[Rfam]
RNA: U7 small nuclear RNA
Organism: Otolemur garnettii
RNA sequence: CAGUGUUACAGCUCUUUUAGAAUUUGUCUCACAGGUUUUCUGGUCUCCACUAGAAGACAGCCCCA
Numbered sequence: 001c002a003g004u005g006u007u008a009c010a011g012c013u014c015u016u017u018u019a020g021a022a023u024u025u026g027u028c029u030c031a032c033a034g035g036u037u038u039u040c041u042g043g044u045c046u047c048c049a050c051u052a053g054a055a056g057a058c059a060g061c062c063c064c065a
Base pairs, nucleotide, nucleotide: 034062035061036060037056038055039054040053041052042051043050044049
Dot-bracket structure: .................................(((((((((((....))))))))...)))...